[Rfam]
Nucleotides: 085
Stems, first nucleotide, its partner, number of pairs: 017077003021073002026068002031063003037058008
Number, partner (000 for none) and nucleotide at each position: 001000u002000u003000a004000u005000g006000g007000u008000u009000u010000u011000g012000u013000g014000u015000g016000a017077g018076u019075g020000a021073u022072a023000g024000g025000a026068g027067c028000g029000g030000c031063a032062u033061c034000c035000u036000u037058u038057u039056u040055g041054u042053u043052g044051c045000u046000u047000c048000u049000u050000u051044g052043c053042a054041a055040c056039a057038a058037a059000a060000a061033g062032a063031u064000a065000u066000a067027g068026c069000g070000g071000a072022u073021a074000g075019c076018a077017c078000g079000a080000c081000c082000u083000a084000u085000u
This 85-nucleotide RNA sequence from Gelidibacter algens belongs to the Rfam family "Flavo-1 RNA". By type it is a small RNA. A search with the family's covariance model found it, with a score of 65 bits.